[Rfam]
RNA sequence: GGUCUAUGAUGAAUAGUAAAAGGUCUGAUUAUCCCAAGACUUGCAGUUCCAUGCCCGCUUCUCCCAGCAGUUUCUCCCCAGCCACAGCACAGCAAUGGUGUGGCUGGCAGAGUGUUUGCUGACAGUGUGAGAUGUGCUCAGGUCAUGUUCACCUGGAGCAGCGGAGACAUGACUGGGAUCAGCAUCCAACAGUCUUGCUUCAAGGAGUUUGGGUCUUGGAUUGGUCUAACUGGACGUGUGAUCUGACUUUUCUGCUGAGACC
Numbered sequence: 001g002g003u004c005u006a007u008g009a010u011g012a013a014u015a016g017u018a019a020a021a022g023g024u025c026u027g028a029u030u031a032u033c034c035c036a037a038g039a040c041u042u043g044c045a046g047u048u049c050c051a052u053g054c055c056c057g058c059u060u061c062u063c064c065c066a067g068c069a070g071u072u073u074c075u076c077c078c079c080a081g082c083c084a085c086a087g088c089a090c091a092g093c094a095a096u097g098g099u100g101u102g103g104c105u106g107g108c109a110g111a112g113u114g115u116u117u118g119c120u121g122a123c124a125g126u127g128u129g130a131g132a133u134g135u136g137c138u139c140a141g142g143u144c145a146u147g148u149u150c151a152c153c154u155g156g157a158g159c160a161g162c163g164g165a166g167a168c169a170u171g172a173c174u175g176g177g178a179u180c181a182g183c184a185u186c187c188a189a190c191a192g193u194c195u196u197g198c199u200u201c202a203a204g205g206a207g208u209u210u211g212g213g214u215c216u217u218g219g220a221u222u223g224g225u226c227u228a229a230c231u232g233g234a235c236g237u238g239u240g241a242u243c244u245g246a247c248u249u250u251u252c253u254g255c256u257g258a259g260a261c262c
Stems, first nucleotide, its partner, number of pairs: 001262004037244003041240001048220004053215001061207004065121006078107009129187001131186005144171006150164001153161001

Overview: The family of this 262-nucleotide RNA sequence from Donacobius atricapilla is "Small Cajal body specific RNA 6". Rfam's curators write: U88 is small Cajal body specific RNA (scaRNA). scaRNAs are a novel class of small nuclear RNAs which localise to the Cajal bodies. U88 is found associated with both fibrillarin and Gar1p and co-localises with coilin in Cajal bodies. It scores 127 bits against the family's covariance model. On this family, see Huttenhofer et al., EMBO J 2001: "RNomics: an experimental approach that identifies 201 candidates for novel, small, non-messenger RNAs in mouse". Lineage of the source: Eukaryota > Euteleostomi > Dipnotetrapodomorpha > Sauria > Donacobius. The family's consensus secondary structure is taken from published work. Rfam 15.1 lists 1,309 matches to the family in 627 species.